[Rfam]
RNA sequence: UUCUUAUCCAGAGAGACGGAGGGAUUGGCCCGUAGAUGUCUCAGCAACCAGCCACGUUUAGGUAUGGUGCUAAUUCCAAAUAGACGUUUGACGUCUUGAAGAUAAGAA
Numbered sequence: 001u002u003c004u005u006a007u008c009c010a011g012a013g014a015g016a017c018g019g020a021g022g023g024a025u026u027g028g029c030c031c032g033u034a035g036a037u038g039u040c041u042c043a044g045c046a047a048c049c050a051g052c053c054a055c056g057u058u059u060a061g062g063u064a065u066g067g068u069g070c071u072a073a074u075u076c077c078a079a080a081u082a083g084a085c086g087u088u089u090g091a092c093g094u095c096u097u098g099a100a101g102a103u104a105a106g107a108a
Stems, first nucleotide, its partner, number of pairs: 001108008013042005021031003025079004043071004048067002051063003075100001082096005
The family of this 108-nucleotide RNA from Psychrobacillus psychrotolerans is "SAM riboswitch aptamer (S box leader)". The match comes from Rfam's covariance-model search (88 bits).